[Rfam]
RNA sequence: AUUUGUGCGGUGGUGAAGCUAUUUGUGGACUAGAGUUUCUGAUCUGGGUUCUCAAUUCCCAGAAGUUGAAGACAAACCCUUGGCUGUCCGAGCACCCCC
Numbered sequence: 001a002u003u004u005g006u007g008c009g010g011u012g013g014u015g016a017a018g019c020u021a022u023u024u025g026u027g028g029a030c031u032a033g034a035g036u037u038u039c040u041g042a043u044c045u046g047g048g049u050u051c052u053c054a055a056u057u058c059c060c061a062g063a064a065g066u067u068g069a070a071g072a073c074a075a076a077c078c079c080u081u082g083g084c085u086g087u088c089c090g091a092g093c094a095c096c097c098c099c
Base pairs, nucleotide, nucleotide: 005095006094007093008092036071037070038069039068043064044062045061046060047059048058
Rfam assigns this 99-nucleotide RNA from Nyssa sinensis to the family "Small nucleolar RNA Z157/R69/R10". Gene Ontology terms of the family: nucleolus and RNA processing. The base pairs follow the family's consensus structure, which was predicted with PFOLD. The source organism's lineage runs through Eukaryota, Embryophyta, Magnoliopsida, Nyssaceae and Nyssa.